This 73-nucleotide sequence belongs to the Rfam family "RAGATH-18 RNA". Actinobacteria, Firmicutes, Fusobacteria, Thermotogae (1 example). By type it is a small RNA. Rfam's curators put it in the seed alignment. The base pairs follow the family's consensus structure, which is taken from published work.
RNA sequence: ACUGUGGAGUGUACAAGAAUUUGUGAGUAGCGUAUUGUUUACAAUCGCCAAAGCAUACACAAUGAAGCAGUAA
Numbered sequence: 001a002c003u004g005u006g007g008a009g010u011g012u013a014c015a016a017g018a019a020u021u022u023g024u025g026a027g028u029a030g031c032g033u034a035u036u037g038u039u040u041a042c043a044a045u046c047g048c049c050a051a052a053g054c055a056u057a058c059a060c061a062a063u064g065a066a067g068c069a070g071u072a073a
Stems, first nucleotide, its partner, number of pairs: 001071005009060005022055003030048003035044002